The family of this 78-nucleotide RNA from Erpetoichthys calabaricus is "Mammalian CPEB3 ribozyme". The family's consensus secondary structure is taken from published work. The source organism's lineage runs through Eukaryota, Chordata, Teleostomi, Euteleostomi and Erpetoichthys. Rfam's curators write: The mammalian CPEB3 ribozyme is a self cleaving RNA located in the second intron of the CPEB3 gene which belongs to a family of genes regulating messenger RNA polyadenylation. This ribozyme is highly conserved and found only in mammals.

[Rfam]
RNA sequence: GCACCCUAUCUAGGGGUCACAGUAGGAACAUUCUCGUUGUGAGCCCCGUCAGAUUUUAUCGAAAUCUGCAAUCCUACU
Numbered sequence: 001g002c003a004c005c006c007u008a009u010c011u012a013g014g015g016g017u018c019a020c021a022g023u024a025g026g027a028a029c030a031u032u033c034u035c036g037u038u039g040u041g042a043g044c045c046c047c048g049u050c051a052g053a054u055u056u057u058a059u060c061g062a063a064a065u066c067u068g069c070a071a072u073c074c075u076a077c078u
Base pairs, nucleotide, nucleotide: 013046014045015044017042018041021078022077023076024075025074026073027072028040029039030038050068051067052066053065054064055063056062
Dot-bracket structure: ............[[[.[[..((((((((((.......)))]].]]]...(((((((.....)))))))...)))))))